Rfam assigns this 103-nucleotide RNA sequence from Thermoanaerobacter brockii to the family "TPP riboswitch aptamer (THI element)".
The base pairs follow the family's consensus structure, which is taken from published work.
Gene Ontology term of the family: thiamine pyrophosphate binding.
RNA sequence: GACAAGUGCUAGGGGAGCCAAAAAGUGGCUGAGAGGGGAUUCGUUCCCGACCCUUUGAACCUGUCAGGGUAAUGCCUGCGUAGGGAAGCAUGCUUUUUAAAAC
Numbered sequence: 001g002a003c004a005a006g007u008g009c010u011a012g013g014g015g016a017g018c019c020a021a022a023a024a025g026u027g028g029c030u031g032a033g034a035g036g037g038g039a040u041u042c043g044u045u046c047c048c049g050a051c052c053c054u055u056u057g058a059a060c061c062u063g064u065c066a067g068g069g070u071a072a073u074g075c076c077u078g079c080g081u082a083g084g085g086a087a088g089c090a091u092g093c094u095u096u097u098u099a100a101a102a103c
Stems, first nucleotide, its partner, number of pairs: 006091005011054004017029004036047004060084004065078004
The source organism's lineage runs through Bacteria, Bacillati, Bacillota, Thermoanaerobacterales and Thermoanaerobacter brockii.